[Rfam]
RNA sequence: GAAGUCGGCUGGACGGUCGCUGCCCAUUCGGGUGGAGGAAAGUCCGGGCUCCAUAGGGCAGGGCGCCAGGUAACACCUGGGGGGCGUGAGCCUACGGAAAGUGCCACAGAAAACAGACCGCCAAAGCCCGUCAGGGCUGGUAAGGGUGAAAAGGUGCGGUAAGAGCGCACCGCGGCGCUGGUAACAGUCGCUGGCACGGUAAACCCCGCUCGGAGCAAGACCAAAUAGGGGAGCAUGACGUGUGGCCCGCACGGCUCCCGGGUAGGUCGCUACAGGCGUCCCGGUGACGGGCGUCGCAGAUGAAUGAUCGUUCUCGACAGAACCCGGCUUAUAGGCCGACUUCCUCU
Numbered sequence: 001g002a003a004g005u006c007g008g009c010u011g012g013a014c015g016g017u018c019g020c021u022g023c024c025c026a027u028u029c030g031g032g033u034g035g036a037g038g039a040a041a042g043u044c045c046g047g048g049c050u051c052c053a054u055a056g057g058g059c060a061g062g063g064c065g066c067c068a069g070g071u072a073a074c075a076c077c078u079g080g081g082g083g084g085c086g087u088g089a090g091c092c093u094a095c096g097g098a099a100a101g102u103g104c105c106a107c108a109g110a111a112a113a114c115a116g117a118c119c120g121c122c123a124a125a126g127c128c129c130g131u132c133a134g135g136g137c138u139g140g141u142a143a144g145g146g147u148g149a150a151a152a153g154g155u156g157c158g159g160u161a162a163g164a165g166c167g168c169a170c171c172g173c174g175g176c177g178c179u180g181g182u183a184a185c186a187g188u189c190g191c192u193g194g195c196a197c198g199g200u201a202a203a204c205c206c207c208g209c210u211c212g213g214a215g216c217a218a219g220a221c222c223a224a225a226u227a228g229g230g231g232a233g234c235a236u237g238a239c240g241u242g243u244g245g246c247c248c249g250c251a252c253g254g255c256u257c258c259c260g261g262g263u264a265g266g267u268c269g270c271u272a273c274a275g276g277c278g279u280c281c282c283g284g285u286g287a288c289g290g291g292c293g294u295c296g297c298a299g300a301u302g303a304a305u306g307a308u309c310g311u312u313c314u315c316g317a318c319a320g321a322a323c324c325c326g327g328c329u330u331a332u333a334g335g336c337c338g339a340c341u342u343c344c345u346c347u
Stems, first nucleotide, its partner, number of pairs: 001343010011332001012312007020035006040330003044327005049215004056248004061211005066080005081095001082093004096206002101204002103200003118145002120141003125138005153171006172195001173193005178187003219268004229259006239253005275295004280291004
Source information: Bacterial RNase P class A: a 347-nucleotide RNA sequence from Plasticicumulans acidivorans. Ribonuclease P (RNase P) is a ubiquitous endoribonuclease, found in archaea, bacteria and eukarya as well as chloroplasts and mitochondria. Its best characterised activity is the generation of mature 5'-ends of tRNAs by cleaving the 5'-leader elements of precursor-tRNAs. Cellular RNase Ps are ribonucleoproteins. The family's RNA type in Rfam is ribozyme. The base pairs follow the family's consensus structure, which is taken from published work.